[Rfam]
RNA: DUF805b RNA
RNA sequence: AAGGCCGAACCCGAAAAGCCUUGAACAAAGUAGGGA
Numbered sequence: 001a002a003g004g005c006c007g008a009a010c011c012c013g014a015a016a017a018g019c020c021u022u023g024a025a026c027a028a029a030g031u032a033g034g035g036a
Stems, first nucleotide, its partner, number of pairs: 002021004010035003